MIR1520 microRNA precursor family: a 114-nucleotide RNA from Glycine soja.
Taxonomically the source falls in Glycine subgen. Soja (Eukaryota, eudicotyledons, fabids, Phaseoleae).
The family's consensus secondary structure was predicted with RNAalifold.
Its Rfam clan is "MIR1520 microRNA precursor clan".
Its family is annotated with RISC complex and miRNA-mediated post-transcriptional gene silencing in the Gene Ontology.
RNA sequence: UGAAAAAGGAAUGUUGACCGUCACGUGCCAUGUUCUGAUUGAUCAAUGAAAACAACAAUGUAUUUCAUCUUUUAUGGAGUUGAUAUCCAAUCAAACAUGUGACCGUUAUCAUUC
Numbered sequence: 001u002g003a004a005a006a007a008g009g010a011a012u013g014u015u016g017a018c019c020g021u022c023a024c025g026u027g028c029c030a031u032g033u034u035c036u037g038a039u040u041g042a043u044c045a046a047u048g049a050a051a052a053c054a055a056c057a058a059u060g061u062a063u064u065u066c067a068u069c070u071u072u073u074a075u076g077g078a079g080u081u082g083a084u085a086u087c088c089a090a091u092c093a094a095a096c097a098u099g100u101g102a103c104c105g106u107u108a109u110c111a112u113u114c
Stems, first nucleotide, its partner, number of pairs: 020103004025098002033095002036093001038091003